Rfam assigns this 84-nucleotide RNA sequence from Trichechus manatus to the family "Small nucleolar RNA SNORD86". Rfam's curators write: U86 belongs to the C/D family of snoRNAs. It is the human orthologue of Xenopus laevis U86 and has no identified RNA target. The family has 6 seed sequences and 274 matches in Rfam 15.1. By type it is a C/D-box small nucleolar RNA. For this family Rfam cites "U86, a novel snoRNA with an unprecedented gene organization in yeast" (Filippini et al., Biochem Biophys Res Commun, 2001). Pairs were carried over by alignment from the consensus structure, which was predicted with RNAalifold.
RNA sequence: GAUCAUGAUGAUGCUAGCCAGGGCCCCUGUCCUAUACAGGCCUCUGCUGUGGGGGUGAUGGCCAGUCCUGGUCUCUUAGUGAUU
Numbered sequence: 001g002a003u004c005a006u007g008a009u010g011a012u013g014c015u016a017g018c019c020a021g022g023g024c025c026c027c028u029g030u031c032c033u034a035u036a037c038a039g040g041c042c043u044c045u046g047c048u049g050u051g052g053g054g055g056u057g058a059u060g061g062c063c064a065g066u067c068c069u070g071g072u073c074u075c076u077u078a079g080u081g082a083u084u
Base pairs, nucleotide, nucleotide: 001084002083003082004081005080006079010075011074017072018071019070020069021068022067023066024065025061026060028058031055032054033053037051038050039048040047041046